Source information: This 135-nucleotide sequence from Nyctereutes procyonoides belongs to the Rfam family "Small nucleolar RNA SNORA1".
[Rfam]
RNA sequence: AGCCUCAUUUUCCACGAGAAUGGGCACCGCUGGUUGCAUGUCCUGGAAUUCCUAAUGUGGCUAAACUGAGACCAUAGACCAUGUUUCCAGCUCAGGAAACAUAUUGCAAGGGUAAUGAUGAGACCUGUAAUUUUU
Numbered sequence: 001a002g003c004c005u006c007a008u009u010u011u012c013c014a015c016g017a018g019a020a021u022g023g024g025c026a027c028c029g030c031u032g033g034u035u036g037c038a039u040g041u042c043c044u045g046g047a048a049u050u051c052c053u054a055a056u057g058u059g060g061c062u063a064a065a066c067u068g069a070g071a072c073c074a075u076a077g078a079c080c081a082u083g084u085u086u087c088c089a090g091c092u093c094a095g096g097a098a099a100c101a102u103a104u105u106g107c108a109a110g111g112g113u114a115a116u117g118a119u120g121a122g123a124c125c126u127g128u129a130a131u132u133u134u135u
Stems, first nucleotide, its partner, number of pairs: 002061003006057003022043005074128004089113001091111002
The family's consensus secondary structure was predicted with PFOLD. Rfam's curators write: ACA1 is a member of the H/ACA class of snoRNA that guide the sites of modification of uridines to pseudouridines. Rfam classes the family as an H/ACA-box small nucleolar RNA. The organism belongs to Nyctereutes, within Eukaryota.